[Rfam]
RNA sequence: GGGCUGGCCCUAUAGCUCAGCGGUUCCUUCUUGAAUUUUCGGUUUAUUACUGACUAAUCCUCUCGGGGGUUCUAAACCCGCGGGCGCUAACCAGCCUUUUA
Numbered sequence: 001g002g003g004c005u006g007g008c009c010c011u012a013u014a015g016c017u018c019a020g021c022g023g024u025u026c027c028u029u030c031u032u033g034a035a036u037u038u039u040c041g042g043u044u045u046a047u048u049a050c051u052g053a054c055u056a057a058u059c060c061u062c063u064c065g066g067g068g069g070u071u072c073u074a075a076a077c078c079c080g081c082g083g084g085c086g087c088u089a090a091c092c093a094g095c096c097u098u099u100u101a
Stems, first nucleotide, its partner, number of pairs: 002096006015085004020081004028075002
Source information:
A member of the RNA family "Vault RNA" from Xenopus laevis, 101 nucleotides long. The source organism's lineage runs through Eukaryota, Metazoa, Bilateria, Vertebrata and Xenopus. The base pairs follow the family's consensus structure, which is taken from published work. Rfam describes the family as follows. This family of RNAs are found as part of the enigmatic vault ribonucleoprotein complex. By type it is a non-coding RNA gene.